[Rfam]
RNA sequence: UAUAAACUUAAUAAGAAAACUUAUAUAAUCCUGCAUAAUGGGCAGGAGUCUCUACCUUGCACCGAUGUAAGAUUAUGAGUUAUAAAGCUAACAAA
Number, nucleotide and partner (000 for none) at each position: 001u000002a000003u000004a000005a000006a000007c000008u000009u000010a000011a000012u000013a000014a000015g000016a000017a000018a081019a080020c079021u078022u077023a076024u075025a074026u000027a000028a000029u047030c046031c045032u044033g043034c042035a000036u000037a000038a000039u000040g000041g000042g034043c033044a032045g031046g030047a029048g000049u000050c000051u000052c000053u000054a000055c000056c071057u070058u069059g068060c067061a066062c000063c000064g000065a000066u061067g060068u059069a058070a057071g056072a000073u000074u025075a024076u023077g022078a021079g020080u019081u018082a000083u000084a000085a000086a000087g000088c000089u000090a000091a000092c000093a000094a000095a000
RNA: Purine riboswitch aptamer